RNA sequence: CGACCCGAGGUCAGACAGGAUUACCCGCUGAACUUAAGCAUAUGAGUAAGCAGAGGAAAAAAAAUUACCAAUAUUCCCUUAGUAACAGCAAGUGAAUCGGGAAAAGCCCAGCUUGAGAAUCGAUCGUCAUCGGCAUCUGAAUUGUAGUCUAGAGAAGCGUCUUCAGCAGUGGACCAGGCCUAAGUUUCUUGGAAAGGGGCGCCAGAGAGGGUGAGAGCCCCGUCGUGCCUAAACCCUGUCGCACCAUGAGGCGCUAUCUACGAGUCAAGUUGUUUGGAAAUGCAGCCCUAAUCGGGCGGUAAAUUUUGUCUAAAGCUAAAUACGGGCAAGAGACCGAUUGCGAACAAGUACCGCGAGGGAAAGAUGAAAAAGACUUUGAAAAGAGAGUCAAAGAAUGCUUGAAAUUGUUGGGAGGAAAG
Numbered sequence: 001c002g003a004c005c006c007g008a009g010g011u012c013a014g015a016c017a018g019g020a021u022u023a024c025c026c027g028c029u030g031a032a033c034u035u036a037a038g039c040a041u042a043u044g045a046g047u048a049a050g051c052a053g054a055g056g057a058a059a060a061a062a063a064a065u066u067a068c069c070a071a072u073a074u075u076c077c078c079u080u081a082g083u084a085a086c087a088g089c090a091a092g093u094g095a096a097u098c099g100g101g102a103a104a105a106g107c108c109c110a111g112c113u114u115g116a117g118a119a120u121c122g123a124u125c126g127u128c129a130u131c132g133g134c135a136u137c138u139g140a141a142u143u144g145u146a147g148u149c150u151a152g153a154g155a156a157g158c159g160u161c162u163u164c165a166g167c168a169g170u171g172g173a174c175c176a177g178g179c180c181u182a183a184g185u186u187u188c189u190u191g192g193a194a195a196g197g198g199g200c201g202c203c204a205g206a207g208a209g210g211g212u213g214a215g216a217g218c219c220c221c222g223u224c225g226u227g228c229c230u231a232a233a234c235c236c237u238g239u240c241g242c243a244c245c246a247u248g249a250g251g252c253g254c255u256a257u258c259u260a261c262g263a264g265u266c267a268a269g270u271u272g273u274u275u276g277g278a279a280a281u282g283c284a285g286c287c288c289u290a291a292u293c294g295g296g297c298g299g300u301a302a303a304u305u306u307u308g309u310c311u312a313a314a315g316c317u318a319a320a321u322a323c324g325g326g327c328a329a330g331a332g333a334c335c336g337a338u339u340g341c342g343a344a345c346a347a348g349u350a351c352c353g354c355g356a357g358g359g360a361a362a363g364a365u366g367a368a369a370a371a372g373a374c375u376u377u378g379a380a381a382a383g384a385g386a387g388u389c390a391a392a393g394a395a396u397g398c399u400u401g402a403a404a405u406u407g408u409u410g411g412g413a414g415g416a417a418a419g
Stems, first nucleotide, its partner, number of pairs: 024055001025053001027051003035042002065071002075102004085093002105317003111149001113147003117143002120140003126134001154258002156255004161251004166242002169239002171236002176230004184200001186199004203207001210220002269286005294311005351358002374385004
The record is a 419-nucleotide part of an RNA from Gossypium aridum, which matches "Eukaryotic large subunit ribosomal RNA" in Rfam. Pairs were carried over by alignment from the consensus structure, which is taken from published work. The source organism's lineage runs through Eukaryota, Streptophyta, Streptophytina, eudicotyledons and Gossypium. A search with the family's covariance model found it, with a score of 2355 bits. Gene Ontology terms of the family: ribosome and structural constituent of ribosome. The literature on the family includes a 2002 paper in BMC Bioinformatics by Cannone et al., "The comparative RNA web (CRW) site: an online database of comparative sequence and structure information for ribosomal, intron, and other RNAs".